[Rfam]
RNA sequence: GGUCAAGAGUCCCAGCGCGGAGCCCCGGCUCGCUGGGCGGCAACCCUCCUCCGCGGUGGGGUGCCCCGGGUGAUGACCGGGCCCGCCGGCAUGCGGCGGGCAAGCGCGGGCC
Dot-bracket structure: ((((....(.((((((....((......)).)))))))(((..(((.((.....))..))).))).........))))..((((((((.....))))))))...........